The family of this 112-nucleotide RNA from Anaerostipes sp. 494a is "TPP riboswitch aptamer (THI element)". The base pairs follow the family's consensus structure, which is taken from published work.

[Rfam]
RNA sequence: AGUAACUGAAAUGGGAGCUUAAAAGACUUUUGUCUUAGCUGAGAGGAAGCAUUGCUUCGACCAUAAACCUGAUGCGGAUAAUGCCGCCGUAGGGAUUUGGAUGCUAUGAUAA
Numbered sequence: 001a002g003u004a005a006c007u008g009a010a011a012u013g014g015g016a017g018c019u020u021a022a023a024a025g026a027c028u029u030u031u032g033u034c035u036u037a038g039c040u041g042a043g044a045g046g047a048a049g050c051a052u053u054g055c056u057u058c059g060a061c062c063a064u065a066a067a068c069c070u071g072a073u074g075c076g077g078a079u080a081a082u083g084c085c086g087c088c089g090u091a092g093g094g095a096u097u098u099g100g101a102u103g104c105u106a107u108g109a110u111a112a
Stems, first nucleotide, its partner, number of pairs: 006100005011064004017039003021035001046058005068093004074087004
Rfam links the family to the GO term thiamine pyrophosphate binding. A search with the family's covariance model found it, with a score of 66 bits.